Shown here is a 302-nucleotide RNA from Phytophthora fragariae, a member of the family "RNase MRP". The source organism's lineage runs through Eukaryota, Oomycota, Peronosporomycetes, Peronosporaceae and Phytophthora.
RNA sequence: GAACACGAUUUAGAAUUGCGAAGUCAAGUGGGUCUUCCCUCCGGUGCGUCAUGCGCUAGAGGUGGGGGCGGCUUGGGGAAAUUCCCCGGACACCAGGGCAGAAAGUGCCAGCGUCGAAGCGCAGACUUCCUCAGCGAUGAAGCUUUGCAGAGAUGGCUCGUCUCGGCGGGCCUGAGCUUUUUGGCGGAUUCGCGAGGACUGAUGGUCAUACUAAAAGUUAUGCAAUUGGCUCAGCGGCUCAUGUCGGACGUCGUGCCGACGCCGCUUGGAGCUAACCCGACGGGGAUUACUCAUGUUGUGUU
Numbered sequence: 001g002a003a004c005a006c007g008a009u010u011u012a013g014a015a016u017u018g019c020g021a022a023g024u025c026a027a028g029u030g031g032g033u034c035u036u037c038c039c040u041c042c043g044g045u046g047c048g049u050c051a052u053g054c055g056c057u058a059g060a061g062g063u064g065g066g067g068g069c070g071g072c073u074u075g076g077g078g079a080a081a082u083u084c085c086c087c088g089g090a091c092a093c094c095a096g097g098g099c100a101g102a103a104a105g106u107g108c109c110a111g112c113g114u115c116g117a118a119g120c121g122c123a124g125a126c127u128u129c130c131u132c133a134g135c136g137a138u139g140a141a142g143c144u145u146u147g148c149a150g151a152g153a154u155g156g157c158u159c160g161u162c163u164c165g166g167c168g169g170g171c172c173u174g175a176g177c178u179u180u181u182u183g184g185c186g187g188a189u190u191c192g193c194g195a196g197g198a199c200u201g202a203u204g205g206u207c208a209u210a211c212u213a214a215a216a217g218u219u220a221u222g223c224a225a226u227u228g229g230c231u232c233a234g235c236g237g238c239u240c241a242u243g244u245c246g247g248a249c250g251u252c253g254u255g256c257c258g259a260c261g262c263c264g265c266u267u268g269g270a271g272c273u274a275a276c277c278c279g280a281c282g283g284g285g286a287u288u289a290c291u292c293a294u295g296u297u298g299u300g301u302u
Base pairs, nucleotide, nucleotide: 002302003301004300005299006298007297008296009295011293014227015226016225017224018223019222024076025075026074027073028072029071080288081287082286084285085284086283087282097109098108099107100106111122112121113120114119124199126197131195132194134193135192136191137190142185143184144183147177148176165172166171229272230271231270232269234267

It is annotated as a ribozyme. Clan: RNaseP clan. Rfam describes the family as follows. RNase MRP is an enzymatically active ribonucleoprotein with two distinct roles in eukaryotes. The match comes from Rfam's covariance-model search (112 bits).